Background: mir-92 microRNA precursor family: a 78-nucleotide RNA sequence from Callorhinchus milii. The literature on the family includes a 2002 paper in Genes Dev by Mourelatos et al., "miRNPs: a novel class of ribonucleoproteins containing numerous microRNAs". Pairs were carried over by alignment from the consensus structure, which was predicted with PFOLD. Its Rfam clan is "mir-92 microRNA precursor clan".
RNA sequence: UAUUGUGUGCAGGUUGGGAUGAGCAGCAAUAUUAACACUUCACUCAAUAUUGCACUUGUCCCGGCCUAUACAGAUCAA
Number, nucleotide and partner (000 for none) at each position: 001u000002a000003u000004u074005g000006u072007g000008u000009g069010c000011a067012g066013g065014u064015u000016g062017g061018g060019a059020u058021g000022a056023g055024c000025a000026g053027c052028a051029a050030u049031a048032u047033u046034a000035a000036c000037a000038c000039u000040u000041c000042a000043c000044u000045c000046a033047a032048u031049a030050u029051u028052g027053c026054a000055c023056u022057u000058g020059u019060c018061c017062c016063g000064g014065c013066c012067u011068a000069u009070a000071c000072a006073g000074a004075u000076c000077a000078a000